[Rfam]
RNA: Bacterial antisense RNA HPnc0260
Organism: Helicobacter canadensis
RNA sequence: GGAAUUUAAAAAUCCAAAUGUUACGGAAUAUUACAAAUAAAAAACGAUGAAUAAAGAGAUGCAAGAACUAAAAGAAGACAAAACAUACACAAGGGUUAAAAUCAAUGGGAUACAAUAUGGUGGCCACGACUGGACUUGAACCAGCGACCACUACCA
Numbered sequence: 001g002g003a004a005u006u007u008a009a010a011a012a013u014c015c016a017a018a019u020g021u022u023a024c025g026g027a028a029u030a031u032u033a034c035a036a037a038u039a040a041a042a043a044a045c046g047a048u049g050a051a052u053a054a055a056g057a058g059a060u061g062c063a064a065g066a067a068c069u070a071a072a073a074g075a076a077g078a079c080a081a082a083a084c085a086u087a088c089a090c091a092a093g094g095g096u097u098a099a100a101a102u103c104a105a106u107g108g109g110a111u112a113c114a115a116u117a118u119g120g121u122g123g124c125c126a127c128g129a130c131u132g133g134a135c136u137u138g139a140a141c142c143a144g145c146g147a148c149c150a151c152u153a154c155c156a
Base pairs, nucleotide, nucleotide: 007033008032009031013027014026015025048081118153119152120151121150122149123148127146128145130144131143132142133141